sbcD RNA: a 147-nucleotide RNA sequence from Crypturellus undulatus.

[Rfam]
RNA sequence: UUAGCAGCUUAGACUCAGUUCCUCAAAAUGCCACGUCAGGAGGGGAACACAUCCCCCUGGGAGCAGCGCUGCUCCCUUCCACGGCAGCUCGUGGGCCUGGCCCUGGCAGCGCCGCGUCCCCGUAUGGGGACGCGGCGCUGCCAGGGC
Numbered sequence: 001u002u003a004g005c006a007g008c009u010u011a012g013a014c015u016c017a018g019u020u021c022c023u024c025a026a027a028a029u030g031c032c033a034c035g036u037c038a039g040g041a042g043g044g045g046a047a048c049a050c051a052u053c054c055c056c057c058u059g060g061g062a063g064c065a066g067c068g069c070u071g072c073u074c075c076c077u078u079c080c081a082c083g084g085c086a087g088c089u090c091g092u093g094g095g096c097c098u099g100g101c102c103c104u105g106g107c108a109g110c111g112c113c114g115c116g117u118c119c120c121c122g123u124a125u126g127g128g129g130a131c132g133c134g135g136c137g138c139u140g141c142c143a144g145g146g147c
Stems, first nucleotide, its partner, number of pairs: 035079001038058003042055004059076007083102002085099002087096003103144018
Background:
Rfam classes the family as a small RNA.